[Rfam]
Nucleotides: 072
Base pairs, nucleotide, nucleotide: 001072002071003070004069005068006067
Number, partner (000 for none) and nucleotide at each position: 001072c002071a003070u004069c005068c006067c007000u008000a009000u010000g011000a012000a013000g014000a015000a016000u017000g018000a019000c020000u021000g022000a023000a024000a025000g026000u027000a028000g029000u030000g031000g032000c033000c034000u035000g036000a037000c038000a039000u040000c041000u042000g043000u044000u045000g046000a047000u048000g049000a050000a051000u052000a053000a054000c055000a056000c057000u058000c059000a060000g061000u062000u063000c064000u065000g066000a067006g068005g069004g070003a071002u072001g